RNA sequence: AAAAAGGACUUCUGUCAUGAGUGGCCUAUGUAGAGCAACCAGAUUGCUCUUCAUGCGGAAUUGACAUCAAGAGCUUUCAGAAGUGUAUGUUUUGGAAGUUGGGCAGCUGGUAAUCACUGGUCUUGGCAUACUU
Number, nucleotide and partner (000 for none) at each position: 001a000002a000003a000004a000005a000006g000007g000008a084009c083010u082011u081012c080013u000014g025015u024016c023017a022018u000019g000020a000021g000022u017023g016024g015025c014026c000027u055028a054029u053030g052031u000032a050033g049034a048035g047036c046037a045038a044039c000040c000041a000042g000043a000044u038045u037046g036047c035048u034049c033050u032051u000052c030053a029054u028055g027056c000057g078058g077059a076060a075061u000062u073063g000064a000065c000066a000067u000068c000069a000070a000071g000072a000073g062074c000075u060076u059077u058078c057079a000080g012081a011082a010083g009084u008085g000086u000087a000088u000089g000090u000091u000092u000093u000094g000095g000096a000097a000098g000099u000100u000101g131102g000103g129104c000105a000106g127107c126108u125109g124110g123111u000112a000113a121114u120115c119116a000117c000118u000119g115120g114121u113122c000123u110124u109125g108126g107127c106128a000129u103130a000131c101132u000133u000
U11 spliceosomal RNA: a 133-nucleotide RNA from Pongo abelii.
The family is grouped with related families in Rfam's "U1 clan".
Lineage of the source: Eukaryota > Gnathostomata > Dipnotetrapodomorpha > Theria > Pongo.
The family's consensus secondary structure is taken from published work.